[Rfam]
RNA sequence: GUCUUCAGACAACCGCUGCGCAUUUUAUGUGUAGAGGAAAGUCCAUGCUCGCACCGGCUGAGAGGCCGGUAGUGUUCGUGCCUAGUUAAUCCAUAAGCUAGGGCAGCUGCUGUGCAGCUGACGGCAGGAGAGAUGCCUACGUCCAAAUGGAUAAGGCAUGCACUCCUUGAAAGUGCCACAGUGACGUAGUCUGCUUGGAAACGGGCAGAGUGGAACGCGGUAAACCCCUCGAGCGAGAAACCCAAACAAUGGUAGGGGCAUUUUUCAGUCUGAAAAUGAACGGAACUGAAAAAACGAAGCAAUUCGUAGAUAGAUGGUUGUCGCCGGAGUACGAGGCUCAUCACCGUUUGUAGUACAAAGGUACAGAACAUGGCUUAUCGAU
Numbered sequence: 001g002u003c004u005u006c007a008g009a010c011a012a013c014c015g016c017u018g019c020g021c022a023u024u025u026u027a028u029g030u031g032u033a034g035a036g037g038a039a040a041g042u043c044c045a046u047g048c049u050c051g052c053a054c055c056g057g058c059u060g061a062g063a064g065g066c067c068g069g070u071a072g073u074g075u076u077c078g079u080g081c082c083u084a085g086u087u088a089a090u091c092c093a094u095a096a097g098c099u100a101g102g103g104c105a106g107c108u109g110c111u112g113u114g115c116a117g118c119u120g121a122c123g124g125c126a127g128g129a130g131a132g133a134u135g136c137c138u139a140c141g142u143c144c145a146a147a148u149g150g151a152u153a154a155g156g157c158a159u160g161c162a163c164u165c166c167u168u169g170a171a172a173g174u175g176c177c178a179c180a181g182u183g184a185c186g187u188a189g190u191c192u193g194c195u196u197g198g199a200a201a202c203g204g205g206c207a208g209a210g211u212g213g214a215a216c217g218c219g220g221u222a223a224a225c226c227c228c229u230c231g232a233g234c235g236a237g238a239a240a241c242c243c244a245a246a247c248a249a250u251g252g253u254a255g256g257g258g259c260a261u262u263u264u265u266c267a268g269u270c271u272g273a274a275a276a277u278g279a280a281c282g283g284a285a286c287u288g289a290a291a292a293a294a295c296g297a298a299g300c301a302a303u304u305c306g307u308a309g310a311u312a313g314a315u316g317g318u319u320g321u322c323g324c325c326g327g328a329g330u331a332c333g334a335g336g337c338u339c340a341u342c343a344c345c346g347u348u349u350g351u352a353g354u355a356c357a358a359a360g361g362u363a364c365a366g367a368a369c370a371u372g373g374c375u376u377a378u379c380g381a382u
Base pairs, nucleotide, nucleotide: 005381006380007378008322009321010320011319012318013317014316016034017033018032019031020030021029039376040375041374043373044372045371046370047369048237049236050235051234052233053070054069055068056067057066058065076232077231078230080228081102082101083100084099085098086097103122104120105119106118107117108116109115123227124226126167127166128165129164134158135157136156137155141152142151143150173225174224175221176220177219190209191208192207193206194205195204196203197202241257242256243255261293262292263291264290265289266288267287294307295306296305297304298303324361325360329356330355331354332353
This 382-nucleotide RNA sequence from Shouchella clausii belongs to the Rfam family "Bacterial RNase P class B". Clan: RNaseP clan. Taxonomically the source falls in Shouchella clausii (Bacteria, Bacillati, Bacilli, Bacillaceae). Ribonuclease P (RNase P) is a ubiquitous endoribonuclease, found in archaea, bacteria and eukarya as well as chloroplasts and mitochondria. Its best characterised activity is the generation of mature 5'-ends of tRNAs by cleaving the 5'-leader elements of precursor-tRNAs. Cellular RNase Ps are ribonucleoproteins. By type it is a ribozyme. The family's consensus secondary structure is taken from published work.